Notes: This 72-nucleotide RNA sequence from Legionella pneumophila belongs to the Rfam family "Salmonella enterica sRNA STnc40". Rfam's curators put it in the seed alignment. Lineage of the source: Bacteria > Gammaproteobacteria > Legionellales > Legionella > Legionella pneumophila. It is annotated as a small RNA.
RNA sequence: UUGUCUCUAUGGGGACGCAUCAAAUAAUAAAUCAGUUUUAGAAUAAAAGGCGCAGCGUUCUGCGCCUUUUUU
Numbered sequence: 001u002u003g004u005c006u007c008u009a010u011g012g013g014g015a016c017g018c019a020u021c022a023a024a025u026a027a028u029a030a031a032u033c034a035g036u037u038u039u040a041g042a043a044u045a046a047a048a049g050g051c052g053c054a055g056c057g058u059u060c061u062g063c064g065c066c067u068u069u070u071u072u
Stems, first nucleotide, its partner, number of pairs: 002019003006013002045070011